Group II catalytic intron D1-D4-7: a 155-nucleotide RNA sequence from Bordetella petrii. Rfam links the family to the GO term Group II intron splicing. Group II introns are found in rRNA, tRNA and mRNA of organelles in fungi, plants and protists, and also in mRNA in bacteria. On this family, see Lehmann and Schmidt, Crit Rev Biochem Mol Biol 2003: "Group II introns: structure and catalytic versatility of large natural ribozymes". It is one of the family's seed sequences. Rfam 15.1 lists 1,296 matches to the family in 705 species. The organism belongs to Bordetella, within Bacteria.
RNA sequence: CCCGUCAUACGACUGACGGUAGCCUACAGUGGCGGGCAGGAUCGGUAACGGCCCUGUCUGAAGCCCACUCGACAAUGUACUCCUGUGUACUCCAACAGUAUCCACUGCCGUGAGGCUGGGGAUGGAUUCUGCCAGCAGCCAGGGCGGAUGAGAGG
Numbered sequence: 001c002c003c004g005u006c007a008u009a010c011g012a013c014u015g016a017c018g019g020u021a022g023c024c025u026a027c028a029g030u031g032g033c034g035g036g037c038a039g040g041a042u043c044g045g046u047a048a049c050g051g052c053c054c055u056g057u058c059u060g061a062a063g064c065c066c067a068c069u070c071g072a073c074a075a076u077g078u079a080c081u082c083c084u085g086u087g088u089a090c091u092c093c094a095a096c097a098g099u100a101u102c103c104a105c106u107g108c109c110g111u112g113a114g115g116c117u118g119g120g121g122a123u124g125g126a127u128u129c130u131g132c133c134a135g136c137a138g139c140c141a142g143g144g145c146g147g148a149u150g151a152g153a154g155g
Stems, first nucleotide, its partner, number of pairs: 002019006028069005033060008042051003083098004099124004108115002128148006